[Rfam]
RNA: Small nucleolar RNA SNORA65
Organism: Microcaecilia unicolor
RNA sequence: CCUUCCCCUGUGCCUGUCUGUGAUAAGUGACUGGUAUAGUUCAGUGGUGAGCUGACAACAACCCCCUUCUUAGGAAACAGGACUGAUCUUUAUUCUGUAAACAAUCCUGUGCCGAAAGGAUGGGGACAUAA
Numbered sequence: 001c002c003u004u005c006c007c008c009u010g011u012g013c014c015u016g017u018c019u020g021u022g023a024u025a026a027g028u029g030a031c032u033g034g035u036a037u038a039g040u041u042c043a044g045u046g047g048u049g050a051g052c053u054g055a056c057a058a059c060a061a062c063c064c065c066c067u068u069c070u071u072a073g074g075a076a077a078c079a080g081g082a083c084u085g086a087u088c089u090u091u092a093u094u095c096u097g098u099a100a101a102c103a104a105u106c107c108u109g110u111g112c113c114g115a116a117a118g119g120a121u122g123g124g125g126a127c128a129u130a131a
Stems, first nucleotide, its partner, number of pairs: 005047002008044003018034002020031001021029002063124003068119004073113002078109005089101003